[Rfam]
RNA sequence: AUGCCUUAAACUUAUGAGUAAGGAAAAUAAUUCGGGAUGAUGCCCAAAUCAUCACGGCUAAUGUGAGACAAAUUUUUGAGUGGGUAAAGGUUGCUCCUAAGGUGACCCACCUACUUUGCAGGAUGCCUGGGAGUCUUGAUCUACCUA
Numbered sequence: 001a002u003g004c005c006u007u008a009a010a011c012u013u014a015u016g017a018g019u020a021a022g023g024a025a026a027a028u029a030a031u032u033c034g035g036g037a038u039g040a041u042g043c044c045c046a047a048a049u050c051a052u053c054a055c056g057g058c059u060a061a062u063g064u065g066a067g068a069c070a071a072a073u074u075u076u077u078g079a080g081u082g083g084g085u086a087a088a089g090g091u092u093g094c095u096c097c098u099a100a101g102g103u104g105a106c107c108c109a110c111c112u113a114c115u116u117u118g119c120a121g122g123a124u125g126c127c128u129g130g131g132a133g134u135c136u137u138g139a140u141c142u143a144c145c146u147a
Stems, first nucleotide, its partner, number of pairs: 004023005032047001034045003052066004081147005088142006097131002100128005106122002110118001
Dot-bracket structure: ...(((((..........)))))........(.(((......))).)....((((.......))))..............(((((..((((((...((.(((((.((..(.......)..)).))))).)).....)))))))))))
Source information:
The record is a 147-nucleotide sequence from Carlito syrichta, which matches "U12 minor spliceosomal RNA" in Rfam. Rfam links the family to the GO terms mRNA branch site recognition, pre-mRNA branch point binding and U12 snRNP. The match comes from Rfam's covariance-model search (114 bits). NCBI's taxonomy places the organism under Eukaryota, Bilateria, Vertebrata, Dipnotetrapodomorpha, Carlito. For this family Rfam cites "Pre-mRNA splicing: the discovery of a new spliceosome doubles the challenge" (Tarn and Steitz, Trends Biochem Sci, 1997).